Rfam assigns this 77-nucleotide RNA sequence from Menidia menidia to the family "Small nucleolar RNA SNORD66". Rfam's curators write: snoRNA HBII-142 is part of the C/D family of snoRNAs. It is the human orthologue of the mouse MBII-142 snoRNA and is predicted to guide 2'O-ribose methylation of small 18S rRNA at residue C1272.
RNA sequence: CUCUGGUGAUGACUAUUGCAUUAGUGCCACGUGUCUGGGCCACUGACUACUAGUGAUGGGUUUGAGGAACUGAGGAG
Numbered sequence: 001c002u003c004u005g006g007u008g009a010u011g012a013c014u015a016u017u018g019c020a021u022u023a024g025u026g027c028c029a030c031g032u033g034u035c036u037g038g039g040c041c042a043c044u045g046a047c048u049a050c051u052a053g054u055g056a057u058g059g060g061u062u063u064g065a066g067g068a069a070c071u072g073a074g075g076a077g
Base pairs, nucleotide, nucleotide: 001077002076003075004074